[Rfam]
Description
Pseudomon-1/ErsA RNA: a 118-nucleotide RNA from Pseudomonas syringae group genomosp. 3. Gene Ontology terms of the family: response to antibiotic, positive regulation of translation, ncRNA-mediated and mRNA binding. Rfam's curators put it in the seed alignment. The source organism's lineage runs through Bacteria, Gammaproteobacteria, Pseudomonadales, Pseudomonas and Pseudomonas syringae pv. tomato. By type it is a small RNA. Functions to regulate the AlgC enzyme.
RNA sequence: GUGCUCUUAAGUUGUGUUAAGUGUUGGCAGUUAUUCCGGACCCCACCCUAAGGUCCGGACCUUAAGCCCCGGUACUUCCCCUCCCCAUGUGAAGUCCGGGGUCUUUUUUUGCCUGCGA
Number, nucleotide and partner (000 for none) at each position: 001g000002u000003g000004c000005u000006c000007u000008u000009a000010a000011g000012u000013u000014g000015u000016g000017u000018u000019a000020a000021g000022u000023g000024u000025u000026g000027g000028c000029a000030g000031u000032u000033a000034u000035u059036c058037c057038g056039g055040a054041c053042c052043c000044c000045a000046c000047c000048c000049u000050a000051a000052g042053g041054u040055c039056c038057g037058g036059a035060c000061c000062u000063u000064a105065a104066g103067c101068c100069c099070c098071g097072g096073u000074a095075c094076u093077u092078c091079c000080c000081c000082u000083c000084c000085c000086c000087a000088u000089g000090u000091g078092a077093a076094g075095u074096c072097c071098g070099g069100g068101g067102u000103c066104u065105u064106u000107u000108u000109u000110u000111g000112c000113c000114u000115g000116c000117g000118a000